[Rfam]
Notes: Rfam assigns this 40-nucleotide sequence to the family "L31-Actinobacteria ribosomal protein leader".

RNA sequence: CCGGCACCGGUUCACCCUGGCCCGCCAGGGACCCGGGGCC
Numbered sequence: 001c002c003g004g005c006a007c008c009g010g011u012u013c014a015c016c017c018u019g020g021c022c023c024g025c026c027a028g029g030g031a032c033c034c035g036g037g038g039c040c
Stems, first nucleotide, its partner, number of pairs: 003040003007036004015030006